The record is a 139-nucleotide RNA from bacterium I07, which matches "Group II catalytic intron D1-D4-4" in Rfam.
Pairs were carried over by alignment from the consensus structure.
Its family is annotated with Group II intron splicing in the Gene Ontology.
From the family's description: Group II introns are found in rRNA, tRNA and mRNA of organelles in fungi, plants and protists, and also in mRNA in bacteria.
On this family, see Bonen and Vogel, Trends Genet 2001: "The ins and outs of group II introns".

RNA sequence: CAACAGGAGUCAAUCCUGCCAGGGUAAUAGUCAGAAGCCCUGUAGCUUGGAUGGCAGAUAGGAGGGAAACCGAUUAUCUGAAGCCCAUCGACAAAGCAACUUUUAAGAGGUGUGAGCGAGUCACCGGGCCGUAACGAGA
Numbered sequence: 001c002a003a004c005a006g007g008a009g010u011c012a013a014u015c016c017u018g019c020c021a022g023g024g025u026a027a028u029a030g031u032c033a034g035a036a037g038c039c040c041u042g043u044a045g046c047u048u049g050g051a052u053g054g055c056a057g058a059u060a061g062g063a064g065g066g067a068a069a070c071c072g073a074u075u076a077u078c079u080g081a082a083g084c085c086c087a088u089c090g091a092c093a094a095a096g097c098a099a100c101u102u103u104u105a106a107g108a109g110g111u112g113u114g115a116g117c118g119a120g121u122c123a124c125c126g127g128g129c130c131g132u133a134a135c136g137a138g139a
Base pairs, nucleotide, nucleotide: 020042021041022040023039024038050089051088052087053086054085055080056079057078058077059076060075064071065070096113097112098111100109101108116132117131118130